[Rfam]
RNA sequence: GACUUAAAGAUAUAAUCUAUCUGUCGAUAGAGUCCUUAUCUUUUUAGACUUUCCAGUCUACUCUUCUCAACUAAACGAAAUUUACGUCUUUUUGUGUAUGCUACGCAUGCACAAUUAGAUGUGUAUUUGAGAUUUCGUUCCAGGUUGCCAGCCUUGUGUAACAAGUGUCGUGCUUCUAGGGGUUGCACUUGACGUGUUCCGUCACGUACUUGUGUCCUUAGUUGCCCCACGCUGUUCUGUCAGUGUGGUGUGUGGAUAUAGUGUUCCGUCACUAUUGAAACCGAUAACUGUGCACAAUGUCUAUCAACCAAUUGACACUU
Numbered sequence: 001g002a003c004u005u006a007a008a009g010a011u012a013u014a015a016u017c018u019a020u021c022u023g024u025c026g027a028u029a030g031a032g033u034c035c036u037u038a039u040c041u042u043u044u045u046a047g048a049c050u051u052u053c054c055a056g057u058c059u060a061c062u063c064u065u066c067u068c069a070a071c072u073a074a075a076c077g078a079a080a081u082u083u084a085c086g087u088c089u090u091u092u093u094g095u096g097u098a099u100g101c102u103a104c105g106c107a108u109g110c111a112c113a114a115u116u117a118g119a120u121g122u123g124u125a126u127u128u129g130a131g132a133u134u135u136c137g138u139u140c141c142a143g144g145u146u147g148c149c150a151g152c153c154u155u156g157u158g159u160a161a162c163a164a165g166u167g168u169c170g171u172g173c174u175u176c177u178a179g180g181g182g183u184u185g186c187a188c189u190u191g192a193c194g195u196g197u198u199c200c201g202u203c204a205c206g207u208a209c210u211u212g213u214g215u216c217c218u219u220a221g222u223u224g225c226c227c228c229a230c231g232c233u234g235u236u237c238u239g240u241c242a243g244u245g246u247g248g249u250g251u252g253u254g255g256a257u258a259u260a261g262u263g264u265u266c267c268g269u270c271a272c273u274a275u276u277g278a279a280a281c282c283g284a285u286a287a288c289u290g291u292g293c294a295c296a297a298u299g300u301c302u303a304u305c306a307a308c309c310a311a312u313u314g315a316c317a318c319u320u
Stems, first nucleotide, its partner, number of pairs: 006042002009040003012036001016031006045060005077136006087119003092114001094112008145307003152299001154297006161291002164289002166286005179218004190208001192207005227248008252281002258275006